The family of this 94-nucleotide sequence from Saimiri boliviensis is "Y RNA". The match comes from Rfam's covariance-model search (41 bits). It is annotated as a non-coding RNA gene. For this family Rfam cites "Conserved features of Y RNAs: a comparison of experimentally derived secondary structures" (Teunissen et al., Nucleic Acids Res, 2000). Taxonomically the source falls in Saimiri boliviensis (Eukaryota, Teleostomi, Euarchontoglires, Platyrrhini). Y RNAs are components of the Ro ribonucleoprotein particle (Ro RNP), in association with Ro60 and La proteins. The Y RNAs and Ro60 and La proteins are well conserved, but the function of the Ro RNP is not known. In humans the RNA component can be one of four small RNAs -- hY1, hY3, hY4 and hY5. These small RNAs are predicted to fold into a conserved secondary structure containing three stem structures. Pairs were carried over by alignment from the consensus structure, which is taken from published work.
RNA sequence: AGCCGGUCUGAUGGUAGUGGGUUAUCAGAAUUUAUUAAUGUUAGUGCCACUAAAGUUGGUAUAACUGUCCACUGCUAAAUUUAACUGUCUCAUC
Numbered sequence: 001a002g003c004c005g006g007u008c009u010g011a012u013g014g015u016a017g018u019g020g021g022u023u024a025u026c027a028g029a030a031u032u033u034a035u036u037a038a039u040g041u042u043a044g045u046g047c048c049a050c051u052a053a054a055g056u057u058g059g060u061a062u063a064a065c066u067g068u069c070c071a072c073u074g075c076u077a078a079a080u081u082u083a084a085c086u087g088u089c090u091c092a093u094c
Stems, first nucleotide, its partner, number of pairs: 001090002004087004010082002015077001016073006033061003037057002